[Rfam]
A member of the RNA family "Small nucleolar RNA psi28S-3316" from Drosophila grimshawi, 134 nucleotides long. The sequence is in the family's curated seed alignment.

RNA sequence: AGCACCUAAAAGCGUUUUCUUGAUAGCUUUUUAAACGCUCCUGAAAAUCGUAGCUGUGUGCUAGAAUAAAUGCUGCGGUUGCAAAUGAAUUGAUGCCAAUUAUUGCAUUAUUUCUAUUUACACCACGCACAAUC
Numbered sequence: 001a002g003c004a005c006c007u008a009a010a011a012g013c014g015u016u017u018u019c020u021u022g023a024u025a026g027c028u029u030u031u032u033a034a035a036c037g038c039u040c041c042u043g044a045a046a047a048u049c050g051u052a053g054c055u056g057u058g059u060g061c062u063a064g065a066a067u068a069a070a071u072g073c074u075g076c077g078g079u080u081g082c083a084a085a086u087g088a089a090u091u092g093a094u095g096c097c098a099a100u101u102a103u104u105g106c107a108u109u110a111u112u113u114c115u116a117u118u119u120a121c122a123c124c125a126c127g128c129a130c131a132a133u134c
Stems, first nucleotide, its partner, number of pairs: 001062005006056001012051003015047005022038001074127002077124003083119005088113002091110001093108004
Dot-bracket structure: ((((((.....((((((((..(...............)....))))).)))....).)))))...........((.(((...(((((((.(.((((........)))).).)).)))))..))).)).......
NCBI's taxonomy places the organism under Eukaryota, Protostomia, Mandibulata, Insecta, Hawaiian Drosophila. From the family's description: psi28S-3316 is a member of the H/ACA class of snoRNA. This family is responsible for guiding the modification of uridine 3316 in Drosophila 28S rRNA to pseudouridine.